[Rfam]
The family of this 132-nucleotide RNA from Latilactobacillus sakei is "Ribosomal protein L20 leader". On this family, see Zengel and Lindahl, Prog Nucleic Acid Res Mol Biol 1994: "Diverse mechanisms for regulating ribosomal protein synthesis in Escherichia coli". The source organism's lineage runs through Bacteria, Lactobacillales, Lactobacillaceae, Latilactobacillus sakei and Latilactobacillus sakei subsp. sakei. Rfam's curators write: This family is a putative r-protein leader autoregulatory structure found in B. subtilis and other low-GC Gram-positive bacteria. It is located in the 5' untranslated regions of mRNAs encoding initiation factor 3 followed by ribosomal proteins L35 and L20 (infC-rpmI-rplT). A Rho-independent transcription terminator structure that is probably involved in regulation is included at the 3' end.

RNA sequence: GAAAUAAAGCAGAAGUUCCCGCUUCUCGCCUUAGUAGACACUUGAUGUCUCUGGGCUGAUAGUUUCUAAUUCGGACGAAUUAAGUUAUCGAAUAGCGGGCCUUUCUGUUGAAGGGGCCGUUUUUUUGGUGCU
Dot-bracket structure: ..........((((((....)))))).(((......((.((.....)).))..))).......................................(((.((((((....)))))).))).............
Numbered sequence: 001g002a003a004a005u006a007a008a009g010c011a012g013a014a015g016u017u018c019c020c021g022c023u024u025c026u027c028g029c030c031u032u033a034g035u036a037g038a039c040a041c042u043u044g045a046u047g048u049c050u051c052u053g054g055g056c057u058g059a060u061a062g063u064u065u066c067u068a069a070u071u072c073g074g075a076c077g078a079a080u081u082a083a084g085u086u087a088u089c090g091a092a093u094a095g096c097g098g099g100c101c102u103u104u105c106u107g108u109u110g111a112a113g114g115g116g117c118c119g120u121u122u123u124u125u126u127g128g129u130g131c132u
Stems, first nucleotide, its partner, number of pairs: 011026006028056003037051002040048002096119003100115006